mir-132 microRNA precursor family: an 80-nucleotide RNA from Myotis lucifugus.
On this family, see Chen et al., Genes Dev 2005: "The developmental miRNA profiles of zebrafish as determined by small RNA cloning".
The base pairs follow the family's consensus structure, which was predicted with RNAalifold.
RNA sequence: GCGCGCCGGCACCUUGGCUGCAGACUGCUUACUGCCCGGCGCCCCGAGUAACAGUCUCCAGUCACGGCCGCCGACGCCUG
Numbered sequence: 001g002c003g004c005g006c007c008g009g010c011a012c013c014u015u016g017g018c019u020g021c022a023g024a025c026u027g028c029u030u031a032c033u034g035c036c037c038g039g040c041g042c043c044c045c046g047a048g049u050a051a052c053a054g055u056c057u058c059c060a061g062u063c064a065c066g067g068c069c070g071c072c073g074a075c076g077c078c079u080g
Base pairs, nucleotide, nucleotide: 012067013066015064016063017062018061023056024055025054026053027052029051030050031049032048033047
Dot-bracket structure: ...........((.((((....(((((.(((((.............))))))))))....)))).)).............